[Rfam]
Nucleotides: 078
Base pairs, nucleotide, nucleotide: 001078002077003076004075006073007072008071009070010069011068012067013066014065015064016063017062018061019060020059021058023056024055025054029050030049
Number, partner (000 for none) and nucleotide at each position: 001078g002077g003076c004075c005000u006073c007072c008071c009070u010069c011068u012067g013066c014065g015064g016063g017062g018061c019060g020059a021058u022000c023056g024055a025054u026000c027000a028000u029050g030049g031000a032000g033000c034000a035000c036000c037000c038000c039000u040000c041000c042000u043000c044000c045000c046000c047000g048000g049030c050029c051000c052000c053000c054025a055024u056023c057000a058021a059020u060019u061018g062017c063016c064015c065014u066013g067012c068011a069010g070009a071008g072007g073006g074000u075004g076003g077002c078001c